Rfam assigns this 145-nucleotide sequence from Miscanthus lutarioriparius to the family "small nucleolar RNA snoR135". Rfam 15.1 lists 837 matches to the family in 220 species. The family's RNA type in Rfam is H/ACA-box small nucleolar RNA. Its family is annotated with nucleolus and RNA processing in the Gene Ontology.
RNA sequence: UAUGCAGGAUAGUGUGUAUCGGCUUUAUGCUAACUUCUAUGCAUUUUGUGCCGAAAGUGUUUCCUGCUAUAUAGAUUGAAGGAAAGUGGGCAGUUGGGUUAGACUUGUAUCCUGUUAUCUCCCAACAAUCAUUUUCCUCUCAUGU
Numbered sequence: 001u002a003u004g005c006a007g008g009a010u011a012g013u014g015u016g017u018a019u020c021g022g023c024u025u026u027a028u029g030c031u032a033a034c035u036u037c038u039a040u041g042c043a044u045u046u047u048g049u050g051c052c053g054a055a056a057g058u059g060u061u062u063c064c065u066g067c068u069a070u071a072u073a074g075a076u077u078g079a080a081g082g083a084a085a086g087u088g089g090g091c092a093g094u095u096g097g098g099u100u101a102g103a104c105u106u107g108u109a110u111c112c113u114g115u116u117a118u119c120u121c122c123c124a125a126c127a128a129u130c131a132u133u134u135u136c137c138u139c140u141c142a143u144g145u
Stems, first nucleotide, its partner, number of pairs: 004067005009061001014044006080138010093126004

Source information
The match comes from Rfam's covariance-model search (117 bits).